[Rfam]
RNA: Xanthine riboswitch aptamer (NMT1 RNA)
Organism: Vibrio fluvialis
RNA sequence: CCCCGGAGUAGAAGCGGUCUGCAAUCAUCGACGAUUGCUGGACAUUGCUCCAAUC
Numbered sequence: 001c002c003c004c005g006g007a008g009u010a011g012a013a014g015c016g017g018u019c020u021g022c023a024a025u026c027a028u029c030g031a032c033g034a035u036u037g038c039u040g041g042a043c044a045u046u047g048c049u050c051c052a053a054u055c
Stems, first nucleotide, its partner, number of pairs: 005051006015040001018042002021038006